Shown here is a 113-nucleotide RNA from Salana multivorans, a member of the family "SAM (S-adenosyl methionine) riboswitch aptamer". It scores 104 bits against the family's covariance model. A reference for the family is Weinberg et al. (2008), "The aptamer core of SAM-IV riboswitches mimics the ligand-binding site of SAM-I riboswitches", RNA. Rfam describes the family as follows. SAM-IV is a mRNA element that regulates gene expression via direct sensing of S-adenosylmethionine (SAM or AdoMet). Pairs were carried over by alignment from the consensus structure, which is taken from published work.

RNA sequence: GGUCUCGAGCUCCAGCAUCAAGCCCCGGCUUGCUGGACGGCAACCCUCCACCUGCGGUGGGGUGCCCCGGGUGACGACCAGGUCCUGGCUACCUGUCAGGGCAAGCGCUCGUC
Dot-bracket structure: ((((....(.((((((....((......)).)))))))(((..(((.((......))..))).))).........))))..((((((((.....))))))))...........